[Rfam]
The record is a 74-nucleotide RNA sequence from Danio rerio, which matches "mir-126 microRNA precursor family" in Rfam.
For this family Rfam cites "Clustering and conservation patterns of human microRNAs" (Altuvia et al., Nucleic Acids Res, 2005).
Pairs were carried over by alignment from the consensus structure, which was predicted with RNAalifold.
It is one of the family's seed sequences.
RNA sequence: UCACAGUCCAUUAUUACUUUUGGUACGCGCUAGGCCAGACUCAAACUCGUACCGUGAGUAAUAAUGCACUGUGG
Dot-bracket structure: ........((((((((((..(((((((.(................).)))))))..))))))))))........